RNA sequence: CUGCCGUGAUGGGUACAUUUUUCGUCAGCAGCAUUUCACCUAGUGAAUGUUGAUGCCUCAGAGCUGAGCAG
Numbered sequence: 001c002u003g004c005c006g007u008g009a010u011g012g013g014u015a016c017a018u019u020u021u022u023c024g025u026c027a028g029c030a031g032c033a034u035u036u037c038a039c040c041u042a043g044u045g046a047a048u049g050u051u052g053a054u055g056c057c058u059c060a061g062a063g064c065u066g067a068g069c070a071g
Base pairs, nucleotide, nucleotide: 002070003069004068008026009025010024011023
Small nucleolar RNA SNORD56: a 71-nucleotide sequence from Varanus komodoensis. The family has 7 seed sequences and 796 matches in Rfam 15.1. A reference for the family is Galardi et al. (2002), "Purified box C/D snoRNPs are able to reproduce site-specific 2'-O-methylation of target RNA in vitro", Mol Cell Biol. Rfam links the family to the GO terms RNA processing and nucleolus. Taxonomically the source falls in Varanus (Eukaryota, Metazoa, Teleostomi, Bifurcata). A search with the family's covariance model found it, with a score of 57 bits.